RNA sequence: GGGUGUUGGUACCGCAUCGGGCGGCGCAACAGGUUAAUGCGAUGGUCGGGCCGCCACG
Numbered sequence: 001g002g003g004u005g006u007u008g009g010u011a012c013c014g015c016a017u018c019g020g021g022c023g024g025c026g027c028a029a030c031a032g033g034u035u036a037a038u039g040c041g042a043u044g045g046u047c048g049g050g051c052c053g054c055c056a057c058g
Stems, first nucleotide, its partner, number of pairs: 005030004012023001040058002043056004